[Rfam]
RNA sequence: CAUCCCGAUGAUGGUUUAACAAGAAAGUUAAAAGUAGUGUCCGAAUCUCUUUGAUGAAAUCAUUAACUCUGAGGGAUG
Numbered sequence: 001c002a003u004c005c006c007g008a009u010g011a012u013g014g015u016u017u018a019a020c021a022a023g024a025a026a027g028u029u030a031a032a033a034g035u036a037g038u039g040u041c042c043g044a045a046u047c048u049c050u051u052u053g054a055u056g057a058a059a060u061c062a063u064u065a066a067c068u069c070u071g072a073g074g075g076a077u078g
Stems, first nucleotide, its partner, number of pairs: 001078006
Dot-bracket structure: ((((((..................................................................))))))
Source information:
Shown here is a 78-nucleotide RNA sequence from Cephalotus follicularis, a member of the family "Small nucleolar RNA R21". A reference for the family is Barneche et al. (2001), "Identification of 66 box C/D snoRNAs in Arabidopsis thaliana: extensive gene duplications generated multiple isoforms predicting new ribosomal RNA 2'-O-methylation sites", J Mol Biol.